[Rfam]
RNA sequence: GGAUGUGAGGGCGAUUUGGCUGCAACAUCUGUCACCCCAUUGAUCUCCAGGGUUGAUUCGGCUGAUCUGGCUGACUAGGCAGGUGUCCCCUUCCUCCCUCAACGUUCCAUGUGUGUCCCUCCCAAAGCUGCAUGCUAGGUCGAAGACGACGACCACCCCUGAUACAGGAGGACUGUUCCUUGGUCAAGGGUAUACCAGUAGCUGCACUCGCCUGCUAGAACCUCCAAACAAGCUCUCAAGGUCCAUUUGUAGGAGAACAUAGGGUAAUCAAGCUUCCAAGGCUCCAGAUACAUCCAAAUGUGGUGCUACACAUGGCAGUCUGACUUUU
Numbered sequence: 001g002g003a004u005g006u007g008a009g010g011g012c013g014a015u016u017u018g019g020c021u022g023c024a025a026c027a028u029c030u031g032u033c034a035c036c037c038c039a040u041u042g043a044u045c046u047c048c049a050g051g052g053u054u055g056a057u058u059c060g061g062c063u064g065a066u067c068u069g070g071c072u073g074a075c076u077a078g079g080c081a082g083g084u085g086u087c088c089c090c091u092u093c094c095u096c097c098c099u100c101a102a103c104g105u106u107c108c109a110u111g112u113g114u115g116u117c118c119c120u121c122c123c124a125a126a127g128c129u130g131c132a133u134g135c136u137a138g139g140u141c142g143a144a145g146a147c148g149a150c151g152a153c154c155a156c157c158c159c160u161g162a163u164a165c166a167g168g169a170g171g172a173c174u175g176u177u178c179c180u181u182g183g184u185c186a187a188g189g190g191u192a193u194a195c196c197a198g199u200a201g202c203u204g205c206a207c208u209c210g211c212c213u214g215c216u217a218g219a220a221c222c223u224c225c226a227a228a229c230a231a232g233c234u235c236u237c238a239a240g241g242u243c244c245a246u247u248u249g250u251a252g253g254a255g256a257a258c259a260u261a262g263g264g265u266a267a268u269c270a271a272g273c274u275u276c277c278a279a280g281g282c283u284c285c286a287g288a289u290a291c292a293u294c295c296a297a298a299u300g301u302g303g304u305g306c307u308a309c310a311c312a313u314g315g316c317a318g319u320c321u322g323a324c325u326u327u328u
Base pairs, nucleotide, nucleotide: 001108002107003106006101007100008099009098010097011096013093014092018090019089025086026085027084028083029082030081031080032079033078036073037070038069039068042067043066044065045064047061048060116171117170118168119167120166122139123138125136127135128134140162141161142160148157201273202272203271208266211263212262213261214260222255223254224253225252228250229249230248231247232246300326302324304322305319306318307317309315

Shown here is a 328-nucleotide RNA sequence from Cavia porcellus, a member of the family "7SK RNA". A reference for the family is Wassarman and Steitz (1991), "Structural analyses of the 7SK ribonucleoprotein (RNP), the most abundant human small RNP of unknown function", Mol Cell Biol. Lineage of the source: Eukaryota > Opisthokonta > Tetrapoda > Caviidae > Cavia. 7SK was discovered as an abundant small nuclear RNA in the mid-70s but a possible function has only recently been suggested. Two independent studies have found that 7SK RNA binds the CDK9/cyclin T complex (known as elongation factor P-TEFb). P-TEFb activates transcription by phosphorylating the C-terminal domain of RNA polymerase II. This process is negatively regulated by the 7SK RNP. The secondary structure of 7SK RNA shown here was proposed by Wasserman and Steitz on the basis of chemical modification and enzymatic cleavage experiments.